[Rfam]
RNA: Small nucleolar RNA SNORD66
RNA sequence: UUUCGAUGAUGCUCUUGUCAGUGAAAUUGCAGGUCUGGUACAUAGUAGGUGCUUGAUGAAGGUGAGGAACUGAGAAA
Numbered sequence: 001u002u003u004c005g006a007u008g009a010u011g012c013u014c015u016u017g018u019c020a021g022u023g024a025a026a027u028u029g030c031a032g033g034u035c036u037g038g039u040a041c042a043u044a045g046u047a048g049g050u051g052c053u054u055g056a057u058g059a060a061g062g063u064g065a066g067g068a069a070c071u072g073a074g075a076a077a
Stems, first nucleotide, its partner, number of pairs: 001077004